[Rfam]
The record is a 69-nucleotide RNA sequence from Bombyx mori, which matches "mir-3389 microRNA precursor family" in Rfam. Lineage of the source: Eukaryota > Mandibulata > Bombycoidea > Bombycidae > Bombyx. Gene Ontology terms of the family: RISC complex and miRNA-mediated post-transcriptional gene silencing.

Nucleotides: 069
Base pairs, nucleotide, nucleotide: 004066005065006064007061008060010059011058013056015055016054017053018052019051020050024049025048026047027046029045030044031043033041
Number, partner (000 for none) and nucleotide at each position: 001000c002000c003000a004066g005065u006064c007061g008060u009000a010059g011058c012000c013056g014000a015055u016054g017053u018052u019051c020050c021000a022000c023000a024049g025048c026047a027046g028000g029045g030044g031043g032000c033041c034000c035000a036000g037000g038000a039000c040000a041033g042000a043031c044030c045029c046027c047026u048025g049024c050020g051019g052018a053017a054016c055015a056013c057000c058011g059010c060008g061007c062000u063000c064006g065005a066004c067000g068000g069000g